[Rfam]
RNA sequence: UGAGUUCUCGAUCUCUAAAAUCG
Numbered sequence: 001u002g003a004g005u006u007c008u009c010g011a012u013c014u015c016u017a018a019a020a021u022c023g
Base pairs, nucleotide, nucleotide: 002015003014004013009023010022011021012020
RNA: turnip yellow mosaic virus upstream pseudo-knot (TYMV_upPK)